Shown here is a 598-nucleotide part of an RNA from Saccharomyces cerevisiae, a member of the family "Small nucleolar RNA snR86". The literature on the family includes a 2005 paper in RNA by Torchet et al., "The complete set of H/ACA snoRNAs that guide rRNA pseudouridylations in Saccharomyces cerevisiae". Clan: SNORA48 clan.
Nucleotides: 598
Base pairs, nucleotide, nucleotide: 001594002593003592004591005590006589007588013584014583015582017580018579019578020577021576023574024573025572026571027570028569031565032564034562035561036560037559043555044554045553046552047551048550056542057541058540059539060538061537062536063535069534070533071532072531073530074529075528076527077526081522083519084518085517086516087515097513098512099511100510102508103506104505105504109502110501112499113498114497115496118491119490120489121488122487123486125484126483127482128481129480130479132477133476134144136142137141145462146461147460148459149458150457151456152455153454154453155452156451160447162445164443165442167440168439169438170437171436178431179430180429181428184427185426186425187424191418193416194415195414196413197412200410201409202408203407206403207402208401209400211398212397214395215394216393217392218391219390220389221388222387223386227377228376229375230374231373232372233282234281235280236279237278238277242275243274244273245272246271247269248268249267250266252264253263254262255261256260284371285370286369287368288367289366290365292363293362294361295355296354297353298352301350303348304347305346306345307344308343309342310341311340314339315338316337317336318335
Number, partner (000 for none) and nucleotide at each position: 001594u002593a003592u004591u005590g006589c007588a008000u009000a010000u011000a012000c013584a014583a015582c016000u017580a018579u019578g020577c021576g022000a023574u024573g025572c026571a027570c028569u029000u030000u031565g032564u033000u034562c035561a036560u037559u038000u039000u040000a041000a042000c043555u044554u045553u046552g047551g048550a049000u050000a051000u052000a053000u054000g055000u056542g057541c058540c059539u060538u061537g062536c063535u064000a065000u066000g067000a068000a069534c070533g071532c072531g073530u074529u075528c076527a077526u078000u079000u080000u081522u082000a083519a084518g085517u086516g087515a088000c089000c090000g091000g092000a093000c094000c095000c096000u097513a098512a099511a100510a101000u102508a103506u104505u105504c106000a107000g108000g109502u110501a111000g112499c113498a114497u115496g116000a117000c118491g119490g120489a121488a122487g123486c124000u125484a126483u127482g128481a129480a130479u131000u132477a133476a134144u135000c136142c137141u138000g139000g140000u141137g142136g143000a144134g145462g146461g147460g148459u149458g150457u151456g152455u153454u154453c155452a156451g157000u158000u159000u160447g161000a162445g163000g164443g165442a166000g167440g168439a169438u170437g171436a172000u173000a174000a175000a176000a177000u178431g179430g180429a181428a182000c183000g184427g185426a186425g187424a188000u189000u190000g191418c192000a193416a194415g195414g196413a197412g198000a199000c200410g201409u202408a203407g204000a205000a206403a207402a208401u209400a210000a211398a212397g213000u214395a215394g216393g217392a218391g219390c220389a221388a222387a223386u224000g225000g226000a227377u228376u229375u230374u231373c232372u233282g234281c235280u236279u237278g238277g239000c240000g241000g242275u243274a244273u245272a246271g247269c248268a249267c250266g251000u252264u253263u254262g255261a256260g257000u258000u259000u260256u261255u262254c263253a264252g265000u266250c267249g268248u269247g270000u271246c272245u273244a274243u275242g276000u277238u278237c279236a280235g281234g282233u283000u284371u285370a286369u287368g288367a289366u290365a291000u292363g293362c294361u295355g296354u297353g298352g299000u300000u301350g302000a303348u304347u305346c306345u307344g308343u309342u310341g311340a312000u313000u314339c315338a316337c317336a318335c319000g320000u321000u322000u323000c324000g325000c326000u327000u328000c329000c330000a331000u332000a333000u334000a335318g336317u337316g338315u339314g340311u341310u342309a343308a344307c345306g346305g347304a348303a349000a350301c351000u352298c353297c354296a355295u356000g357000u358000u359000a360000a361294g362293g363292u364000u365290u366289a367288u368287u369286a370285u371284a372232a373231g374230a375229a376228a377227a378000u379000u380000u381000u382000u383000u384000g385000a386223a387222u388221u389220u390219g391218u392217u393216c394215u395214u396000u397212u398211u399000a400209u401208a402207u403206u404000g405000g406000u407203u408202u409201a410200c411000u412197c413196u414195c415194c416193u417000c418191g419000u420000g421000a422000u423000u424187u425186c426185u427184u428181u429180u430179c431178u432000u433000u434000u435000u436171u437170u438169a439168u440167c441000g442165u443164c444000a445162u446000c447160c448000u449000c450000u451156c452155u453154g454153a455152a456151u457150g458149u459148a460147u461146u462145u463000a464000u465000u466000a467000c468000g469000c470000a471000u472000g473000g474000c475000u476133u477132u478000u479130a480129u481128u482127c483126a484125u485000u486123g487122c488121u489120u490119u491118c492000u493000a494000a495000c496115u497114g498113u499112g500000a501110u502109g503000g504105g505104a506103g507000u508102u509000u510100u511099u512098u513097u514000c515087u516086u517085g518084u519083u520000g521000c522081a523000u524000a525000a526077a527076u528075g529074a530073a531072c532071g533070u534069g535063g536062g537061c538060g539059a540058g541057g542056u543000u544000u545000u546000u547000a548000u549000u550048u551047u552046c553045a554044a555043a556000c557000u558000u559037g560036g561035u562034g563000u564032a565031c566000u567000a568000u569028a570027g571026u572025g573024c574023a575000a576021u577020g578019c579018g580017u581000u582015g583014u584013u585000a586000a587000u588007u589006g590005u591004a592003a593002u594001a595000c596000g597000a598000u